[Rfam]
RNA sequence: UUAAAAGUGAUGAUGGAGAAAGAGAAAUACCCCUAUGUUUAAGAGAGCCGGGUAAGGUGGGAGCCGGUAACAUAUGUAUAUUCUUGAGUCACUCCUGAACUGCAAGGCUGAAAACAUUGAGUAGGCCGCGCCGGAAUCAGUUCGUAAUGGAACGCAGCCGUUAACUUGCUAGGGUUUAGUAAUAGACCUGAUGAGAGAUGUAUUCAUUUUUUGAAUACAACAAGGGUGGUACCGCGAGAGAAACCUCUUGCCCCUUUU
Numbered sequence: 001u002u003a004a005a006a007g008u009g010a011u012g013a014u015g016g017a018g019a020a021a022g023a024g025a026a027a028u029a030c031c032c033c034u035a036u037g038u039u040u041a042a043g044a045g046a047g048c049c050g051g052g053u054a055a056g057g058u059g060g061g062a063g064c065c066g067g068u069a070a071c072a073u074a075u076g077u078a079u080a081u082u083c084u085u086g087a088g089u090c091a092c093u094c095c096u097g098a099a100c101u102g103c104a105a106g107g108c109u110g111a112a113a114a115c116a117u118u119g120a121g122u123a124g125g126c127c128g129c130g131c132c133g134g135a136a137u138c139a140g141u142u143c144g145u146a147a148u149g150g151a152a153c154g155c156a157g158c159c160g161u162u163a164a165c166u167u168g169c170u171a172g173g174g175u176u177u178a179g180u181a182a183u184a185g186a187c188c189u190g191a192u193g194a195g196a197g198a199u200g201u202a203u204u205c206a207u208u209u210u211u212u213g214a215a216u217a218c219a220a221c222a223a224g225g226g227u228g229g230u231a232c233c234g235c236g237a238g239a240g241a242a243a244c245c246u247c248u249u250g251c252c253c254c255u256u257u258u
Stems, first nucleotide, its partner, number of pairs: 007100002015095004023085002026082003036072003047068005103130001106127004132144003200218007223255004234251005